Shown here is an 84-nucleotide RNA sequence from Alligator mississippiensis, a member of the family "Mammalian CPEB3 ribozyme". The match comes from Rfam's covariance-model search (39 bits). Lineage of the source: Eukaryota > Chordata > Sarcopterygii > Archelosauria > Alligator. The base pairs follow the family's consensus structure, which is taken from published work.
RNA sequence: AGAGGUCACAAGUUAGGGGCCAUAGCAGAAGCGAUAACAGAGUAUGCGGCCUGUCAGAUUCCAAAGAAUUCUGCAAAUUCUGUU
Numbered sequence: 001a002g003a004g005g006u007c008a009c010a011a012g013u014u015a016g017g018g019g020c021c022a023u024a025g026c027a028g029a030a031g032c033g034a035u036a037a038c039a040g041a042g043u044a045u046g047c048g049g050c051c052u053g054u055c056a057g058a059u060u061c062c063a064a065a066g067a068a069u070u071c072u073g074c075a076a077a078u079u080c081u082g083u084u
Base pairs, nucleotide, nucleotide: 018051019050020049021048024084025083026082027081028080029079030078031047032046033045055073056072057071058070059068060067061066